[Rfam]
RNA sequence: CCUCUUCCCGCGGCCCGAGGUGGCCCGCGGGGCGACGGACACACACUGUGCCUGGGAAGAACUGGGCACUUCAGGGCGUU
Numbered sequence: 001c002c003u004c005u006u007c008c009c010g011c012g013g014c015c016c017g018a019g020g021u022g023g024c025c026c027g028c029g030g031g032g033c034g035a036c037g038g039a040c041a042c043a044c045a046c047u048g049u050g051c052c053u054g055g056g057a058a059g060a061a062c063u064g065g066g067c068a069c070u071u072c073a074g075g076g077c078g079u080u
Base pairs, nucleotide, nucleotide: 004034006032007031008030009029010028011027012026013025015023016022048069049068050067051066052065053064054062
Shown here is an 80-nucleotide RNA sequence from Streptomyces sp. ISL-63, a member of the family "nrdJ RNA". It is annotated as a small RNA. Lineage of the source: Bacteria > Bacillati > Actinomycetota > Streptomycetaceae > Streptomyces. A search with the family's covariance model found it, with a score of 65 bits.